[Rfam]
RNA sequence: UUGCCUUAAACUAAUGAGUAAGGAAAACAAAGCGUCCGGUGAGAACCGGUCGCAGCGCUAAUCGUAAAACACCAAAGUGGCGCAAGAAUUUAUGGAGGGGUUAUAGGCUGGCCGAUGUGUUGACGCUGCUUACUUUGCAGAACUCACCUCGUGCGGGCCUCCCU
Number, nucleotide and partner (000 for none) at each position: 001u000002u000003g000004c023005c022006u021007u020008a019009a000010a000011c000012u000013a000014a000015u000016g000017a000018g000019u008020a007021a006022g005023g004024a000025a000026a000027a000028c000029a000030a000031a000032g053033c052034g051035u000036c049037c048038g047039g046040u000041g000042a000043g000044a000045a000046c039047c038048g037049g036050u000051c034052g033053c032054a000055g083056c082057g081058c080059u079060a000061a000062u000063c000064g000065u000066a000067a000068a000069a000070c000071a000072c000073c000074a000075a000076a000077g000078u000079g059080g058081c057082g056083c055084a000085a000086g000087a000088a000089u000090u000091u000092a000093u000094g000095g000096a000097g000098g164099g163100g162101u000102u000103a000104u000105a160106g159107g158108c157109u156110g000111g154112c000113c000114g150115a149116u000117g147118u146119g145120u000121u000122g000123a000124c000125g000126c140127u139128g138129c137130u000131u000132a000133c000134u000135u000136u000137g129138c128139a127140g126141a000142a000143c000144u000145c119146a118147c117148c000149u115150c114151g000152u000153g000154c111155g000156g109157g108158c107159c106160u105161c000162c100163c099164u098
U12 minor spliceosomal RNA: a 164-nucleotide RNA sequence from Arabidopsis lyrata. Rfam 15.1 lists 2,106 matches to the family in 1,170 species. The family is grouped with related families in Rfam's "U2 clan". The match comes from Rfam's covariance-model search (94 bits). It is annotated as a spliceosomal small nuclear RNA.